[Rfam]
This 73-nucleotide RNA sequence belongs to the Rfam family "skipping-rope RNA". Pairs were carried over by alignment from the consensus structure, which is taken from published work. By type it is a small RNA.
RNA sequence: UAGUCACUGAGGACGGAACGGGCAGCCGUCACCCAUUGUUAGGAGAUGUAGGAGUGUCACCCUACCUUGACUA
Numbered sequence: 001u002a003g004u005c006a007c008u009g010a011g012g013a014c015g016g017a018a019c020g021g022g023c024a025g026c027c028g029u030c031a032c033c034c035a036u037u038g039u040u041a042g043g044a045g046a047u048g049u050a051g052g053a054g055u056g057u058c059a060c061c062c063u064a065c066c067u068u069g070a071c072u073a
Stems, first nucleotide, its partner, number of pairs: 001073006009066001012030005021058004032043001048065005

The sequence is in the family's curated seed alignment.